Small nucleolar RNA SNORD53/SNORD92: a 78-nucleotide RNA from Pantherophis guttatus. By type it is a C/D-box small nucleolar RNA. The pairing is the family consensus, mapped onto this sequence. A search with the family's covariance model found it, with a score of 79 bits. The literature on the family includes a 1996 paper in Cell by Kiss-Laszlo et al., "Site-specific ribose methylation of preribosomal RNA: a novel function for small nucleolar RNAs". Lineage of the source: Eukaryota > Opisthokonta > Metazoa > Bilateria > Pantherophis. The family is grouped with related families in Rfam's "SNORD52 clan".
RNA sequence: CUGCUGUGAUGAUUCCCAAUUGGUUUCACUCACUUCUGAUACCAAGUGAGGAUAAUUUUCUCUUGGCUGUCUGAGCAG
Numbered sequence: 001c002u003g004c005u006g007u008g009a010u011g012a013u014u015c016c017c018a019a020u021u022g023g024u025u026u027c028a029c030u031c032a033c034u035u036c037u038g039a040u041a042c043c044a045a046g047u048g049a050g051g052a053u054a055a056u057u058u059u060c061u062c063u064u065g066g067c068u069g070u071c072u073g074a075g076c077a078g
Stems, first nucleotide, its partner, number of pairs: 001078004